[Rfam]
RNA sequence: AGAAAAUCAGCUCUUAACAAAUGGAUACGAUGAAGCAUUGUUAGGGGC
Numbered sequence: 001a002g003a004a005a006a007u008c009a010g011c012u013c014u015u016a017a018c019a020a021a022u023g024g025a026u027a028c029g030a031u032g033a034a035g036c037a038u039u040g041u042u043a044g045g046g047g048c
Stems, first nucleotide, its partner, number of pairs: 011047005017041003

The family of this 48-nucleotide sequence from Enterococcus pallens is "uup RNA".